Source information
This 89-nucleotide RNA sequence from Erysiphe neolycopersici belongs to the Rfam family "tRNA". It scores 51 bits against the family's covariance model. The literature on the family includes a 1993 paper in Trends Biochem Sci by Hou, "The tertiary structure of tRNA and the development of the genetic code".
[Rfam]
RNA sequence: AGUCGUGUGGUCUAAUGGUUAUGAUAUCUCGUUCACAAACAAUUGAAUAACCCCCGAGAUGGUUCUGAGUUCGAUCCUCAGCACGACUA
Numbered sequence: 001a002g003u004c005g006u007g008u009g010g011u012c013u014a015a016u017g018g019u020u021a022u023g024a025u026a027u028c029u030c031g032u033u034c035a036c037a038a039a040c041a042a043u044u045g046a047a048u049a050a051c052c053c054c055c056g057a058g059a060u061g062g063u064u065c066u067g068a069g070u071u072c073g074a075u076c077c078u079c080a081g082c083a084c085g086a087c088u089a
Base pairs, nucleotide, nucleotide: 001088002087003086004085005084006083007082010025011024012023027059028058029057030056031055065081066080067079068078069077